Shown here is a 120-nucleotide RNA from Coprobacillus cateniformis, a member of the family "FMN riboswitch aptamer (RFN element)". About the family: The RFN element is a highly conserved domain that is found frequently in the 5'-untranslated regions of prokaryotic mRNAs that encode for flavin mononucleotide (FMN) biosynthesis and transport proteins. Pairs were carried over by alignment from the consensus structure, which is taken from published work. A search with the family's covariance model found it, with a score of 113 bits.
RNA sequence: UAGAGUCUUUGUGGCAGGGUGUAAUUCCCUACCGAUGGUAAAAGUCCAUGACCCACAAUAAGUGGUUGAUCUGGUGUGAUUCCAGAACCGACGGUAAAGUCCGGAUGAGAAAAGACAUUU
Numbered sequence: 001u002a003g004a005g006u007c008u009u010u011g012u013g014g015c016a017g018g019g020u021g022u023a024a025u026u027c028c029c030u031a032c033c034g035a036u037g038g039u040a041a042a043a044g045u046c047c048a049u050g051a052c053c054c055a056c057a058a059u060a061a062g063u064g065g066u067u068g069a070u071c072u073g074g075u076g077u078g079a080u081u082c083c084a085g086a087a088c089c090g091a092c093g094g095u096a097a098a099g100u101c102c103g104g105a106u107g108a109g110a111a112a113a114g115a116c117a118u119u120u
Base pairs, nucleotide, nucleotide: 003118005116006115007114008113009112010111017029018028019027031100032099033090034089035049036048037047038046044088045087053065054064070086071085072084073083074082092103093102094101